[Rfam]
RNA sequence: UCCUCCGGUGCCUACUGAGCUGAUAUCAGUUCUGAUUUUACACACUGGCUCAGUUCAGCAAAAAAAGAUG
Numbered sequence: 001u002c003c004u005c006c007g008g009u010g011c012c013u014a015c016u017g018a019g020c021u022g023a024u025a026u027c028a029g030u031u032c033u034g035a036u037u038u039u040a041c042a043c044a045c046u047g048g049c050u051c052a053g054u055u056c057a058g059c060a061a062a063a064a065a066a067g068a069u070g
Base pairs, nucleotide, nucleotide: 003070006067009064013060015058016057017056018055019054020053021052022051023050026048027047028046029045030044